[Rfam]
Lysine riboswitch aptamer: a 188-nucleotide RNA sequence from Salinivibrio sp. KP-1. Rfam describes the family as follows. Riboswitches are metabolite binding domains within certain messenger RNAs that serve as precision sensors for their corresponding targets.
RNA sequence: ACAUGCAGAAGAGGUGCAUUUCUCAGGCAGUUAUCAGGCGGAGCCCCACUCCUAAGCGUGAUAACCAGGGGAGACAAUGCCGAGGUGGCGUAAGAUCGGGGUCGAUACGCUGCCGGCCUUGAAGGCUGAAUCCUUCAGGCUGUCACUUGUCAUCCAUAUGGACAGACAGGUGGAGCGCUUCUGGCAGA
Dot-bracket structure: .....((((((....(((((((((.....(((((((......................))))))).....)))).)))))...(((((((((.............)))))))))((((.((((((......)))))))))).(((((((((.............)))))))))....)))))).....

About this RNA
It scores 85 bits against the family's covariance model. The organism belongs to Salinivibrio, within Bacteria.